RNA sequence: AAGAGAUGAUGAGUAACAAUUUGGUCCGUGUUUCUGAUAACCGUGACUUGAUAAACCUAACCAACCUCUGAUCUU
Number, nucleotide and partner (000 for none) at each position: 001a075002a074003g073004a072005g000006a000007u000008g000009a000010u000011g000012a000013g000014u000015a000016a000017c000018a000019a000020u000021u000022u000023g000024g000025u000026c000027c000028g000029u000030g000031u000032u000033u000034c000035u000036g000037a000038u000039a000040a000041c000042c000043g000044u000045g000046a000047c000048u000049u000050g000051a000052u000053a000054a000055a000056c000057c000058u000059a000060a000061c000062c000063a000064a000065c000066c000067u000068c000069u000070g000071a000072u004073c003074u002075u001
RNA: Small nucleolar RNA SNORD18